[Rfam]
RNA sequence: CCCCCCUCUUUCACUUUGCCAAGUAGACAUUUCUUGUCUUCCUUGGUCAUUCAGUUGGGGUAAAAUAAGUCCUUUUAAAACCCAAGCAAACAAUGUUUGUUUGGCUUGGAUCCUGUCAGGGGAAACACUG
Numbered sequence: 001c002c003c004c005c006c007u008c009u010u011u012c013a014c015u016u017u018g019c020c021a022a023g024u025a026g027a028c029a030u031u032u033c034u035u036g037u038c039u040u041c042c043u044u045g046g047u048c049a050u051u052c053a054g055u056u057g058g059g060g061u062a063a064a065a066u067a068a069g070u071c072c073u074u075u076u077a078a079a080a081c082c083c084a085a086g087c088a089a090a091c092a093a094u095g096u097u098u099g100u101u102u103g104g105c106u107u108g109g110a111u112c113c114u115g116u117c118a119g120g121g122g123a124a125a126c127a128c129u130g
Base pairs, nucleotide, nucleotide: 035062036061037060038059039058043054044053045052046051070123071122072121073120074119075118083108084106087103088102089101090100091099
Rfam assigns this 130-nucleotide RNA from Mauremys mutica to the family "Small nucleolar RNA SNORA27". Rfam's curators write: ACA27 is a member of the H/ACA class of snoRNA that guide the sites of modification of uridines to pseudouridines. The base pairs follow the family's consensus structure. It scores 100 bits against the family's covariance model. The family is grouped with related families in Rfam's "SNORA27 clan".